[Rfam]
RNA sequence: GGUUUACACCCAGUAUCAAAAGGUAUUACGUGAUUCUGACCUCCCAUUCAUGGUCGAGUCAAAACCUUUAUUUUUGGAAAGCUUGCGCGGGGAAUCCGGGUGAGCAAUA
Numbered sequence: 001g002g003u004u005u006a007c008a009c010c011c012a013g014u015a016u017c018a019a020a021a022g023g024u025a026u027u028a029c030g031u032g033a034u035u036c037u038g039a040c041c042u043c044c045c046a047u048u049c050a051u052g053g054u055c056g057a058g059u060c061a062a063a064a065c066c067u068u069u070a071u072u073u074u075u076g077g078a079a080a081g082c083u084u085g086c087g088c089g090g091g092g093a094a095u096c097c098g099g100g101u102g103a104g105c106a107a108u109a
Stems, first nucleotide, its partner, number of pairs: 008034001010030001013027001015024003037061004041056001044053002083107004088102002091097002